[Rfam]
RNA sequence: UAAAUAAAGGAGCAACACCAAAACUCUUGAUAGAACAAGAAAUUGAUUAUUGCUCCUUUAU
Numbered sequence: 001u002a003a004a005u006a007a008a009g010g011a012g013c014a015a016c017a018c019c020a021a022a023a024c025u026c027u028u029g030a031u032a033g034a035a036c037a038a039g040a041a042a043u044u045g046a047u048u049a050u051u052g053c054u055c056c057u058u059u060a061u
Stems, first nucleotide, its partner, number of pairs: 006059010017048001021044002025040005

The record is a 61-nucleotide sequence from Hibiscus syriacus, which matches "Plastid-psbA-4 3UTR RNA" in Rfam. Pairs were carried over by alignment from the consensus structure, which was predicted with LocARNA. Rfam's curators write: Plastid psbA-4 is a non-coding RNA (ncRNA) present in plastids.